Overview: A member of the RNA family "Small nucleolar RNA SNORA65" from Podarcis lilfordi, 132 nucleotides long. Rfam links the family to the GO terms RNA processing and nucleolus. NCBI's taxonomy places the organism under Eukaryota, Amniota, Sauria, Lacertibaenia, Podarcis. It scores 83 bits against the family's covariance model. The family's consensus secondary structure was predicted with RNAalifold. The family's RNA type in Rfam is H/ACA-box small nucleolar RNA. Rfam describes the family as follows. U65 belongs to the H/ACA class of snoRNAs which are thought to guide the sites of modification of uridines to pseudouridines.
[Rfam]
RNA sequence: CCCGCCACUGUGCCUGCCUGAUUUCAUCUGUGGCUUGUACAUUCCAGUGGUGAGCUAAGAGGAAAUCCCCAUUCAAGGAAACAGGGUUAUUUCUCUUCAUGGGUAACUCUGUGCCGAAGAAUGGGAACAGAG
Numbered sequence: 001c002c003c004g005c006c007a008c009u010g011u012g013c014c015u016g017c018c019u020g021a022u023u024u025c026a027u028c029u030g031u032g033g034c035u036u037g038u039a040c041a042u043u044c045c046a047g048u049g050g051u052g053a054g055c056u057a058a059g060a061g062g063a064a065a066u067c068c069c070c071a072u073u074c075a076a077g078g079a080a081a082c083a084g085g086g087u088u089a090u091u092u093c094u095c096u097u098c099a100u101g102g103g104u105a106a107c108u109c110u111g112u113g114c115c116g117a118a119g120a121a122u123g124g125g126a127a128c129a130g131a132g
Stems, first nucleotide, its partner, number of pairs: 005050006018037001020035001022032001068125002071122004077115002082111006090103003